[Rfam]
Nucleotides: 131
Base pairs, nucleotide, nucleotide: 003060004059005058006057007056008055010051011050018045019044020043021042023040024039025036026035027034071124072123073122074121075120076119077118082112083111084110086108087106088105
Number, partner (000 for none) and nucleotide at each position: 001000a002000u003060g004059g005058a006057g007056g008055a009000u010051u011050a012000a013000g014000a015000a016000a017000g018045u019044a020043g021042a022000u023040c024039u025036u026035g027034a028000c029000a030000a031000g032000u033000u034027u035026c036025a037000u038000g039024g040023g041000c042021u043020c044019u045018a046000c047000u048000g049000a050011u051010a052000c053000u054000c055008u056007c057006c058005u059004c060003c061000u062000a063000u064000a065000u066000g067000a068000a069000g070000u071124g072123g073122u074121a075120g076119a077118g078000g079000a080000a081000c082112a083111g084110g085000a086108c087106u088105g089000u090000u091000u092000a093000c094000a095000a096000g097000a098000u099000u100000g101000u102000g103000c104000a105088c106087a107000g108086g109000a110084c111083c112082u113000a114000c115000u116000u117000a118077c119076u120075c121074u122073g123072c124071c125000a126000a127000c128000a129000c130000u131000u